[Rfam]
RNA: mir-310 microRNA precursor family
Organism: Drosophila persimilis
RNA sequence: ACAUUUAUAGGCAAAAAUCAGUUUCAAUAUUUCUCUUUAAUUAAUAUUGCACUUUUUCUUGCCUCUAAAUUU
Dot-bracket structure: (.(((((..((.((.((..((...(((((((...........)))))))..))..)).)).))..))))).)